[Rfam]
RNA: Glycine riboswitch aptamer
RNA sequence: AUGAUUACAAGGGGAGAGAUUACUUAUAAAUUAUAAGUCUAUAAGUAACGCCGAAGGAGCAAACAAUUGUGAAUCUCUCAGGCAAAAAGACUCUUGUAGGACG
Numbered sequence: 001a002u003g004a005u006u007a008c009a010a011g012g013g014g015a016g017a018g019a020u021u022a023c024u025u026a027u028a029a030a031u032u033a034u035a036a037g038u039c040u041a042u043a044a045g046u047a048a049c050g051c052c053g054a055a056g057g058a059g060c061a062a063a064c065a066a067u068u069g070u071g072a073a074u075c076u077c078u079c080a081g082g083c084a085a086a087a088a089g090a091c092u093c094u095u096g097u098a099g100g101a102c103g
Stems, first nucleotide, its partner, number of pairs: 006098008020048009050083003053079002057077003063070002